This 76-nucleotide RNA from Clostridium sp. CAG:81 belongs to the Rfam family "c-di-GMP-I riboswitch aptamer". The base pairs follow the family's consensus structure, which is taken from published work. A search with the family's covariance model found it, with a score of 58 bits.
[Rfam]
RNA sequence: UUCAUAAACCGGCAAAGCAGUCGAAAGGCUGUGACGCAAAGCUAUAGGGCCUGUAAAAUGGCAGCCAGUUGCACUU
Numbered sequence: 001u002u003c004a005u006a007a008a009c010c011g012g013c014a015a016a017g018c019a020g021u022c023g024a025a026a027g028g029c030u031g032u033g034a035c036g037c038a039a040a041g042c043u044a045u046a047g048g049g050c051c052u053g054u055a056a057a058a059u060g061g062c063a064g065c066c067a068g069u070u071g072c073a074c075u076u
Stems, first nucleotide, its partner, number of pairs: 012037002017032006040070004047066002049062003